[Rfam]
RNA sequence: ACACGAGAGAGGAGGUGGUCCAGCGUUGGAUAUCAACAGGACUCGUGAGGUGGCUGUCCGCUAGGACCGCCUUCGGCUUCACUGAGCGAAUUCAAGACAGCUACCCGGCCCCCGGACCUCCGAGUACAGUCCGACUCGGCCCACCAAGCUACCGGUGGGAACAGGUCCGGGGGUUGCUGUUU
Numbered sequence: 001a002c003a004c005g006a007g008a009g010a011g012g013a014g015g016u017g018g019u020c021c022a023g024c025g026u027u028g029g030a031u032a033u034c035a036a037c038a039g040g041a042c043u044c045g046u047g048a049g050g051u052g053g054c055u056g057u058c059c060g061c062u063a064g065g066a067c068c069g070c071c072u073u074c075g076g077c078u079u080c081a082c083u084g085a086g087c088g089a090a091u092u093c094a095a096g097a098c099a100g101c102u103a104c105c106c107g108g109c110c111c112c113c114g115g116a117c118c119u120c121c122g123a124g125u126a127c128a129g130u131c132c133g134a135c136u137c138g139g140c141c142c143a144c145c146a147a148g149c150u151a152c153c154g155g156u157g158g159g160a161a162c163a164g165g166u167c168c169g170g171g172g173g174u175u176g177c178u179g180u181u182u
Stems, first nucleotide, its partner, number of pairs: 014058006059088004064083002106176013120139006

A member of the RNA family "Actinobacteria sRNA Ms_IGR-5" from Crossiella cryophila, 182 nucleotides long. The base pairs follow the family's consensus structure. It scores 93 bits against the family's covariance model. The literature on the family includes a 2013 paper in RNA by Li et al., "Identification of small RNAs in Mycobacterium smegmatis using heterologous Hfq". The family's RNA type in Rfam is small RNA.